Plasmid-encoded Shigella sRNA A: an 89-nucleotide sequence from Citrobacter freundii. A search with the family's covariance model found it, with a score of 69 bits. Taxonomically the source falls in Citrobacter freundii complex (Bacteria, Pseudomonadota, Gammaproteobacteria, Enterobacterales).

[Rfam]
RNA sequence: UGGCUGCGAAAAGAGUUUUAAUUUUUAUGAGACCGGCAACAAUUACGGUCUCAGGCGACAGGCACAUACACAACAUCAUUCAAGUUGCA
Numbered sequence: 001u002g003g004c005u006g007c008g009a010a011a012a013g014a015g016u017u018u019u020a021a022u023u024u025u026u027a028u029g030a031g032a033c034c035g036g037c038a039a040c041a042a043u044u045a046c047g048g049u050c051u052c053a054g055g056c057g058a059c060a061g062g063c064a065c066a067u068a069c070a071c072a073a074c075a076u077c078a079u080u081c082a083a084g085u086u087g088c089a
Base pairs, nucleotide, nucleotide: 001064002063004061005060006059007057008056013052014051015050017048018047019045020044021043022042023041071087072086073085074084076083

The literature on the family includes a 2011 paper in PLoS One by Peng et al., "An integrated approach for finding overlooked genes in Shigella".